RNA sequence: GGGUGUGGCAGCACUAACGCUGCCGCAGGCAAUUUGGAUGGUCGGGCCGCCAUCC
Numbered sequence: 001g002g003g004u005g006u007g008g009c010a011g012c013a014c015u016a017a018c019g020c021u022g023c024c025g026c027a028g029g030c031a032a033u034u035u036g037g038a039u040g041g042u043c044g045g046g047c048c049g050c051c052a053u054c055c
Stems, first nucleotide, its partner, number of pairs: 005026008036055007
RNA: nhaA-I RNA